Shown here is a 214-nucleotide RNA from Phormidium nigroviride, a member of the family "c-di-AMP riboswitch aptamer (ydaO/yuaA leader)". NCBI's taxonomy places the organism under Bacteria, Oscillatoriophycideae, Oscillatoriaceae, Phormidium, Phormidium nigroviride.

[Rfam]
RNA sequence: UAAAAAGUCAAGCCUAAUCCAGCACUGCGCGAUCGAACCAAGCGUGUAGCUGGAGCGGAGGAACCAAUUUUCGGGGCGAAUCUCUACUGAAUUAAAAAGCAAAGUUAAAAAUUGCCAAAUUAUGAGUGUAAUUUUUGAUUUUGAAAUUUAAGGAGAAGGACAUCUCUCAGUCCUAGCCCGUCAGCUAACUUCGCAGGCAUUGAGAAGAGACUGA
Numbered sequence: 001u002a003a004a005a006a007g008u009c010a011a012g013c014c015u016a017a018u019c020c021a022g023c024a025c026u027g028c029g030c031g032a033u034c035g036a037a038c039c040a041a042g043c044g045u046g047u048a049g050c051u052g053g054a055g056c057g058g059a060g061g062a063a064c065c066a067a068u069u070u071u072c073g074g075g076g077c078g079a080a081u082c083u084c085u086a087c088u089g090a091a092u093u094a095a096a097a098a099g100c101a102a103a104g105u106u107a108a109a110a111a112u113u114g115c116c117a118a119a120u121u122a123u124g125a126g127u128g129u130a131a132u133u134u135u136u137g138a139u140u141u142u143g144a145a146a147u148u149u150a151a152g153g154a155g156a157a158g159g160a161c162a163u164c165u166c167u168c169a170g171u172c173c174u175a176g177c178c179c180g181u182c183a184g185c186u187a188a189c190u191u192c193g194c195a196g197g198c199a200u201u202g203a204g205a206a207g208a209g210a211c212u213g214a
Stems, first nucleotide, its partner, number of pairs: 012198003018054006055194006065073001074179003082155004158173004